[Rfam]
RNA sequence: UGGUGGGGUAGAGGCGCGGUAUUUAACAGUCUUUAGUAGAGUGAUAAGGCAUGAUGAGACUAAAGAGAAGGAAAUAUCGCCGAAAUGUGCUAUACCCGUUUGUAUAGCAUGUUGGGUCUGCAGUGAAUAAUUGCAGGACUGUCUUAAUAAAUUUACCCGAUUUAUUAAGGUGCACUAUCUCUAAA
Dot-bracket structure: .....((((((....(((((((((......(((((((.....................)))))))......)))))))))...((((((((((((......))))))))))))((.((((((((.....)))))))).)).((((((((((.........))))))))))....)))))).....
RNA: Lysine riboswitch aptamer
Organism: Cytobacillus kochii